[Rfam]
RNA sequence: GAGGAGUGAUGAAGCUCGAGAUGGUUUCGCAAUUUUCACUGAUGUACUUGUGAUGUCAUCAUCUUCUUGGCUUUCUGACCUC
Numbered sequence: 001g002a003g004g005a006g007u008g009a010u011g012a013a014g015c016u017c018g019a020g021a022u023g024g025u026u027u028c029g030c031a032a033u034u035u036u037c038a039c040u041g042a043u044g045u046a047c048u049u050g051u052g053a054u055g056u057c058a059u060c061a062u063c064u065u066c067u068u069g070g071c072u073u074u075c076u077g078a079c080c081u082c
Base pairs, nucleotide, nucleotide: 001082002081003080004079
About this RNA: The record is an 82-nucleotide RNA sequence from Neogobius melanostomus, which matches "Small nucleolar RNA SNORD53/SNORD92" in Rfam. The match comes from Rfam's covariance-model search (57 bits). It is annotated as a C/D-box small nucleolar RNA. The literature on the family includes a 1996 paper in Cell by Kiss-Laszlo et al., "Site-specific ribose methylation of preribosomal RNA: a novel function for small nucleolar RNAs".